[Rfam]
RNA sequence: AUCUUUAUGCUAAGGGCACGUAGCUAGUGAGGUAAUAACCAAGGCACGUCAAUUGCUGGUUGAAAACUAUUUCCAAACCCCCUCUUCGGCCUUGGGUAUUCCCCUUGGCCGUCGAGAAUUUUUGGAAGGGUUCUCUUAUGAGAAAUAACC
Numbered sequence: 001a002u003c004u005u006u007a008u009g010c011u012a013a014g015g016g017c018a019c020g021u022a023g024c025u026a027g028u029g030a031g032g033u034a035a036u037a038a039c040c041a042a043g044g045c046a047c048g049u050c051a052a053u054u055g056c057u058g059g060u061u062g063a064a065a066a067c068u069a070u071u072u073c074c075a076a077a078c079c080c081c082c083u084c085u086u087c088g089g090c091c092u093u094g095g096g097u098a099u100u101c102c103c104c105u106u107g108g109c110c111g112u113c114g115a116g117a118a119u120u121u122u123u124g125g126a127a128g129g130g131u132u133c134u135c136u137u138a139u140g141a142g143a144a145a146u147a148a149c150c
Stems, first nucleotide, its partner, number of pairs: 018049004023045003031040003082116003087111005094104002129150004